The record is a 266-nucleotide sequence from Alkalihalophilus pseudofirmus, which matches "Bacterial large signal recognition particle RNA" in Rfam. Pairs were carried over by alignment from the consensus structure, which is taken from published work.

RNA sequence: CCGUGCUAGGUGGGGAGGUAGCGGUGCCCUGUACCCGCAAUCCGCUGUAGCGGGACUGAAUCCCUUUCCGAGGUUUUGUCAUCGUAAGGUCUGACCUAAGUAAGUGGUGUUGACGCUUGGGUUCCACGCAACGGAAACCCACGAACCCUGUCAGGUCCGGAAGGAAGCAGCAGUAAGUGGCCCCUUCCGUGUGCCGUGGAGCAGCCUGGGCCGAGCUAACUGCUUAGGUAACGCUUAGGGUGGCACUAUCGAAGAAAGGUGCACGG
Numbered sequence: 001c002c003g004u005g006c007u008a009g010g011u012g013g014g015g016a017g018g019u020a021g022c023g024g025u026g027c028c029c030u031g032u033a034c035c036c037g038c039a040a041u042c043c044g045c046u047g048u049a050g051c052g053g054g055a056c057u058g059a060a061u062c063c064c065u066u067u068c069c070g071a072g073g074u075u076u077u078g079u080c081a082u083c084g085u086a087a088g089g090u091c092u093g094a095c096c097u098a099a100g101u102a103a104g105u106g107g108u109g110u111u112g113a114c115g116c117u118u119g120g121g122u123u124c125c126a127c128g129c130a131a132c133g134g135a136a137a138c139c140c141a142c143g144a145a146c147c148c149u150g151u152c153a154g155g156u157c158c159g160g161a162a163g164g165a166a167g168c169a170g171c172a173g174u175a176a177g178u179g180g181c182c183c184c185u186u187c188c189g190u191g192u193g194c195c196g197u198g199g200a201g202c203a204g205c206c207u208g209g210g211c212c213g214a215g216c217u218a219a220c221u222g223c224u225u226a227g228g229u230a231a232c233g234c235u236u237a238g239g240g241u242g243g244c245a246c247u248a249u250c251g252a253a254g255a256a257a258g259g260u261g262c263a264c265g266g
Stems, first nucleotide, its partner, number of pairs: 001266006009057003012030004017025001019023001034054005063259006072250003079243005085237004092230002096227006104220002106217003115211008123200006129191002132189005139180004148173004156165003
Rfam links the family to the GO terms SRP-dependent cotranslational protein targeting to membrane, signal sequence recognition and signal recognition particle, plasma membrane targeting.